[Rfam]
RNA sequence: GCAAUCCACUGGAGGUGCCUUUUAUAAAGGCUGAGAUCAAAGUGUGACUUUGGGAUUCCUGGAACCUGAUCCAGAUGAUACUGGCGUAGGAAAGUGGUACGGUUUUUUU
Numbered sequence: 001g002c003a004a005u006c007c008a009c010u011g012g013a014g015g016u017g018c019c020u021u022u023u024a025u026a027a028a029g030g031c032u033g034a035g036a037u038c039a040a041a042g043u044g045u046g047a048c049u050u051u052g053g054g055a056u057u058c059c060u061g062g063a064a065c066c067u068g069a070u071c072c073a074g075a076u077g078a079u080a081c082u083g084g085c086g087u088a089g090g091a092a093a094g095u096g097g098u099a100c101g102g103u104u105u106u107u108u109u
Stems, first nucleotide, its partner, number of pairs: 006097005011059004016053001017031005038052005065090004071084004
A member of the RNA family "TPP riboswitch aptamer (THI element)" from Lysinibacillus sp. BF-4, 109 nucleotides long. The organism belongs to Lysinibacillus, within Bacteria.